[Rfam]
RNA sequence: UGGUUUUGUCUGAAGUCAAACUUUCUUAAGUUUGAACAAAUUUAUAUAAAAUAUUAUCAAUUUUUAUGAUACCAAAUAAACAUACUAUGAAAAUAUAUUUCAUUAUAAAUAUAAUGAUACUUAUUUGGUUUUAUAAAAAAUAGUAAUUUUUUAUAUAACUUUGGUCAAACUUAAGAAAGUUUGACUUCAGACAAAAUUAA
Numbered sequence: 001u002g003g004u005u006u007u008g009u010c011u012g013a014a015g016u017c018a019a020a021c022u023u024u025c026u027u028a029a030g031u032u033u034g035a036a037c038a039a040a041u042u043u044a045u046a047u048a049a050a051a052u053a054u055u056a057u058c059a060a061u062u063u064u065u066a067u068g069a070u071a072c073c074a075a076a077u078a079a080a081c082a083u084a085c086u087a088u089g090a091a092a093a094u095a096u097a098u099u100u101c102a103u104u105a106u107a108a109a110u111a112u113a114a115u116g117a118u119a120c121u122u123a124u125u126u127g128g129u130u131u132u133a134u135a136a137a138a139a140a141u142a143g144u145a146a147u148u149u150u151u152u153a154u155a156u157a158a159c160u161u162u163g164g165u166c167a168a169a170c171u172u173a174a175g176a177a178a179g180u181u182u183g184a185c186u187u188c189a190g191a192c193a194a195a196a197u198u199a200a
Stems, first nucleotide, its partner, number of pairs: 005195005011189016031169005045155007055145003059141001061139008072128008
Shown here is a 200-nucleotide RNA from Dichanthelium oligosanthes, a member of the family "MIR1435 microRNA precursor family".
Rfam 15.1 lists 1,765 matches to the family in 31 species.
It scores 99 bits against the family's covariance model.